[Rfam]
RNA sequence: AUACUUACCUGGCAGGGGAGCUACCAUGAUCACGAAGGUAGUUUUCCCAUGGCGAGGCUUAUCUAUUGCAUGCCGGAUGUGCUGACCCCUGUAGUUUUCCCAAAUGUGGGAAACUAAACUGCAUAAUUUGUGGCUGUGGGGGACUGCAUUUGUGCUCUACCCUG
Numbered sequence: 001a002u003a004c005u006u007a008c009c010u011g012g013c014a015g016g017g018g019a020g021c022u023a024c025c026a027u028g029a030u031c032a033c034g035a036a037g038g039u040a041g042u043u044u045u046c047c048c049a050u051g052g053c054g055a056g057g058c059u060u061a062u063c064u065a066u067u068g069c070a071u072g073c074c075g076g077a078u079g080u081g082c083u084g085a086c087c088c089c090u091g092u093a094g095u096u097u098u099c100c101c102a103a104a105u106g107u108g109g110g111a112a113a114c115u116a117a118a119c120u121g122c123a124u125a126a127u128u129u130g131u132g133g134c135u136g137u138g139g140g141g142g143a144c145u146g147c148a149u150u151u152g153u154g155c156u157c158u159a160c161c162c163u164g
Stems, first nucleotide, its partner, number of pairs: 012122004016048005023042002026039002049090001051088002054086001056083003060079005092117001094115001095113003099109002138163004143158001146155003
RNA: U1 spliceosomal RNA
Organism: Castor canadensis